RNA: mir-9198 microRNA precursor family
Organism: Eptesicus fuscus
RNA sequence: GCUGCCGUUCCCACCUACUGUCAGCACCCAGCGCCGGUCCCGAUCACUUGGUGCUGUCAGUGGGUGCGAGCGGUGGUUG
Numbered sequence: 001g002c003u004g005c006c007g008u009u010c011c012c013a014c015c016u017a018c019u020g021u022c023a024g025c026a027c028c029c030a031g032c033g034c035c036g037g038u039c040c041c042g043a044u045c046a047c048u049u050g051g052u053g054c055u056g057u058c059a060g061u062g063g064g065u066g067c068g069a070g071c072g073g074u075g076g077u078u079g
Base pairs, nucleotide, nucleotide: 004074005073006072007071008070009069010068012066013065014064015063016062017061018060019059020058022056023055024054025053026052027051028050